[Rfam]
RNA sequence: CUUGACCGAUCCCAGCCACACCGGCUGUUCGACGGCUCGCUGACCGUAGGUGGCCAGCAGCGCGUGCGCCUC
Numbered sequence: 001c002u003u004g005a006c007c008g009a010u011c012c013c014a015g016c017c018a019c020a021c022c023g024g025c026u027g028u029u030c031g032a033c034g035g036c037u038c039g040c041u042g043a044c045c046g047u048a049g050g051u052g053g054c055c056a057g058c059a060g061c062g063c064g065u066g067c068g069c070c071u072c
Base pairs, nucleotide, nucleotide: 014026015025016024017023033066038062039061040057041056042055044053045052046051
RNA: ASpks TB sRNA
Organism: Streptomyces sp. NRRL WC-3618